[Rfam]
RNA sequence: UAGGUUCCGGUUCACGUCAUGCCAUUGGGGUACGGCGACCCGGUCC
Numbered sequence: 001u002a003g004g005u006u007c008c009g010g011u012u013c014a015c016g017u018c019a020u021g022c023c024a025u026u027g028g029g030g031u032a033c034g035g036c037g038a039c040c041c042g043g044u045c046c
Stems, first nucleotide, its partner, number of pairs: 003046002007043004015037004020032004
Source information
This 46-nucleotide RNA sequence from Bifidobacterium tissieri belongs to the Rfam family "L31-Actinobacteria ribosomal protein leader". The source organism's lineage runs through Bacteria, Bacillati, Actinomycetes, Bifidobacteriaceae and Bifidobacterium. It is annotated as a cis-regulatory leader. The match comes from Rfam's covariance-model search (41 bits).